[Rfam]
RNA sequence: AAGUGUAAUACAUUACUCUCAGGGCCUUGAACAAGACCCAGUGAACAAUUUUUGGAGACCCUACUCUUCGGAGUAGGGUG
Numbered sequence: 001a002a003g004u005g006u007a008a009u010a011c012a013u014u015a016c017u018c019u020c021a022g023g024g025c026c027u028u029g030a031a032c033a034a035g036a037c038c039c040a041g042u043g044a045a046c047a048a049u050u051u052u053u054g055g056a057g058a059c060c061c062u063a064c065u066c067u068u069c070g071g072a073g074u075a076g077g078g079u080g
Stems, first nucleotide, its partner, number of pairs: 022039003026035003058079009
Record summary:
This 80-nucleotide RNA sequence from Caenorhabditis brenneri belongs to the Rfam family "SmY spliceosomal RNA".